[Rfam]
RNA: Plastid-ccsA-ndhD-1 3UTR RNA
Organism: Gossypium anomalum
RNA sequence: AGAACCUUUUGAAUCAAGUAGUGUAGCGAUUCAAAAGGUUCU
Numbered sequence: 001a002g003a004a005c006c007u008u009u010u011g012a013a014u015c016a017a018g019u020a021g022u023g024u025a026g027c028g029a030u031u032c033a034a035a036a037g038g039u040u041c042u
Stems, first nucleotide, its partner, number of pairs: 001042015